[Rfam]
RNA sequence: UGUCGCACUGGCGACCACCAAUGCUCUUGUAGCCUGUGAUGAGCGCCUUCGGGUGGCUACAGUCGCACUUAAGCUGCGACCACUAAUGUUCCGGCAGUCUGUGAGGAGCGCCUUCGGGUGACUGCACAAUAAAACUCUCUAAGCCUGAAAGGGAGUACAUAAACAAUGUGGCAAAUCU
Numbered sequence: 001u002g003u004c005g006c007a008c009u010g011g012c013g014a015c016c017a018c019c020a021a022u023g024c025u026c027u028u029g030u031a032g033c034c035u036g037u038g039a040u041g042a043g044c045g046c047c048u049u050c051g052g053g054u055g056g057c058u059a060c061a062g063u064c065g066c067a068c069u070u071a072a073g074c075u076g077c078g079a080c081c082a083c084u085a086a087u088g089u090u091c092c093g094g095c096a097g098u099c100u101g102u103g104a105g106g107a108g109c110g111c112c113u114u115c116g117g118g119u120g121a122c123u124g125c126a127c128a129a130u131a132a133a134a135c136u137c138u139c140u141a142a143g144c145c146u147g148a149a150a151g152g153g154a155g156u157a158c159a160u161a162a163a164c165a166a167u168g169u170g171g172c173a174a175a176u177c178u
Stems, first nucleotide, its partner, number of pairs: 002015005023044004029060006045054003088109005094125006110119003134156005140175001143172003157169003
STAXI RNA: a 178-nucleotide RNA sequence from Pluralibacter gergoviae. Rfam classes the family as a small RNA. The family's consensus secondary structure is taken from published work.